RNA sequence: UGAGCAGUCCAAAAGUGCUUGUAGUGCAGGUAGUUGGCAUUGAUUCCUACUGCAGAACAAUCACUUUCAGAGCUGCUUA
Numbered sequence: 001u002g003a004g005c006a007g008u009c010c011a012a013a014a015g016u017g018c019u020u021g022u023a024g025u026g027c028a029g030g031u032a033g034u035u036g037g038c039a040u041u042g043a044u045u046c047c048u049a050c051u052g053c054a055g056a057a058c059a060a061u062c063a064c065u066u067u068c069a070g071a072g073c074u075g076c077u078u079a
Stems, first nucleotide, its partner, number of pairs: 004076004010070001013066005019060004025054003029051005
mir-17 microRNA precursor family: a 79-nucleotide sequence from Callorhinchus milii. The match comes from Rfam's covariance-model search (54 bits). The family has 234 seed sequences and 4,687 matches in Rfam 15.1. This family represents the microRNA (miRNA) precursor mir-17, family, which includes mir-20, mir-91, and mir-103. miRNAs are transcribed as ~70nt precursors (modelled here) and subsequently processed by the Dicer enzyme to give a ~22nt product. In this case the mature sequence comes from the 3' arm of the precursor. The extents of the hairpin precursors are not generally known and are estimated based on hairpin prediction. A reference for the family is Ambros (2001), "microRNAs: tiny regulators with great potential", Cell. The family's consensus secondary structure was predicted with RNAalifold.